About this RNA: The record is a 129-nucleotide RNA sequence from Streptococcus hyointestinalis, which matches "Ribosomal protein L20 leader" in Rfam. Rfam links the family to the GO term regulation of gene expression. This family is a putative r-protein leader autoregulatory structure found in B. subtilis and other low-GC Gram-positive bacteria. It is located in the 5' untranslated regions of mRNAs encoding initiation factor 3 followed by ribosomal proteins L35 and L20 (infC-rpmI-rplT). A Rho-independent transcription terminator structure that is probably involved in regulation is included at the 3' end. Rfam classes the family as a cis-regulatory leader. For this family Rfam cites "Diverse mechanisms for regulating ribosomal protein synthesis in Escherichia coli" (Zengel and Lindahl, Prog Nucleic Acid Res Mol Biol, 1994). The organism belongs to Streptococcus, within Bacteria.

RNA sequence: UGAGAAAAGCAGAAGUGAGAGCUUCUCGCCUUGCGACUAACGUUGUCUGGCUCUACAAGUCAAGUUUCAGUCAUGAAAUAUAACUCGUAGUGCGGAUUUGUGUUAGCAAGUCCGCUUUCGUUUUUCUCU
Numbered sequence: 001u002g003a004g005a006a007a008a009g010c011a012g013a014a015g016u017g018a019g020a021g022c023u024u025c026u027c028g029c030c031u032u033g034c035g036a037c038u039a040a041c042g043u044u045g046u047c048u049g050g051c052u053c054u055a056c057a058a059g060u061c062a063a064g065u066u067u068c069a070g071u072c073a074u075g076a077a078a079u080a081u082a083a084c085u086c087g088u089a090g091u092g093c094g095g096a097u098u099u100g101u102g103u104u105a106g107c108a109a110g111u112c113c114g115c116u117u118u119c120g121u122u123u124u125u126c127u128c129u
Stems, first nucleotide, its partner, number of pairs: 011026006028051003033046005092115009